[Rfam]
About this RNA: This 62-nucleotide RNA sequence from Streptomyces sp. ISL-96 belongs to the Rfam family "Actino-pnp RNA". Rfam classes the family as a cis-regulatory element. Taxonomically the source falls in Streptomyces (Bacteria, Bacillati, Actinomycetota, Streptomycetaceae).

RNA sequence: GCCGGUCCUCGGUAGUGGCCCCCGGAGCACAACGACCCCGGGGUCUUCGAUCGAAGACCGGC
Numbered sequence: 001g002c003c004g005g006u007c008c009u010c011g012g013u014a015g016u017g018g019c020c021c022c023c024g025g026a027g028c029a030c031a032a033c034g035a036c037c038c039c040g041g042g043g044u045c046u047u048c049g050a051u052c053g054a055a056g057a058c059c060g061g062c
Stems, first nucleotide, its partner, number of pairs: 001062007009054005017046002020043006027036001